Record summary
Shown here is an 87-nucleotide RNA sequence from Neobacillus vireti, a member of the family "c-di-GMP-I riboswitch aptamer".
Nucleotides: 087
Stems, first nucleotide, its partner, number of pairs: 012037002018031005040081004047077002049073003056067004
Number, partner (000 for none) and nucleotide at each position: 001000u002000c003000a004000u005000g006000a007000u008000a009000a010000a011000g012037g013036c014000a015000c016000a017000c018031c019030u020029g021028a022027u023000g024000a025000a026000a027022a028021u029020c030019a031018g032000u033000g034000u035000c036013g037012c038000a039000a040081a041080g042079c043078u044000a045000u046000a047077g048076g049073g050072a051071c052000u053000a054000a055000g056067g057066u058065g059064c060000u061000a062000u063000u064059g065058u066057a067056c068000u069000a070000u071051g072050u073049c074000a075000g076048c077047c078043a079042g080041u081040u082000a083000c084000c085000a086000a087000a
The base pairs follow the family's consensus structure, which is taken from published work.
The match comes from Rfam's covariance-model search (77 bits).
The source organism's lineage runs through Bacteria, Bacillati, Caryophanales, Bacillaceae and Neobacillus vireti.